[Rfam]
RNA: RNase MRP
Organism: Vanilla planifolia
RNA sequence: CCGUUGUUGAAUGAAGUGAUUCGGUUUCGAAUACCGAGGAAAGUCCCCGGGCCGUAGCGCAAAUGUGCGACCGCGUUGAUGCGGGUUCAUCCUUGCGGCAGCGUCUUGAGGCUGAGACGCGCGCGGAGCCCGUGAUGGACGCGCAAGGAAAGUUGUGGCCGACAUUACAGUAAUUCACUUGGCCCGCUUAGGGUUUAACAGAACGGGGAUUACACUUCAACAACG
Numbered sequence: 001c002c003g004u005u006g007u008u009g010a011a012u013g014a015a016g017u018g019a020u021u022c023g024g025u026u027u028c029g030a031a032u033a034c035c036g037a038g039g040a041a042a043g044u045c046c047c048c049g050g051g052c053c054g055u056a057g058c059g060c061a062a063a064u065g066u067g068c069g070a071c072c073g074c075g076u077u078g079a080u081g082c083g084g085g086u087u088c089a090u091c092c093u094u095g096c097g098g099c100a101g102c103g104u105c106u107u108g109a110g111g112c113u114g115a116g117a118c119g120c121g122c123g124c125g126g127a128g129c130c131c132g133u134g135a136u137g138g139a140c141g142c143g144c145a146a147g148g149a150a151a152g153u154u155g156u157g158g159c160c161g162a163c164a165u166u167a168c169a170g171u172a173a174u175u176c177a178c179u180u181g182g183c184c185c186g187c188u189u190a191g192g193g194u195u196u197a198a199c200a201g202a203a204c205g206g207g208g209a210u211u212a213c214a215c216u217u218c219a220a221c222a223a224c225g
Stems, first nucleotide, its partner, number of pairs: 002225010014180006021037004041211002045208004058069004071084004086150003093146005102137004110130003119124001182195001183193003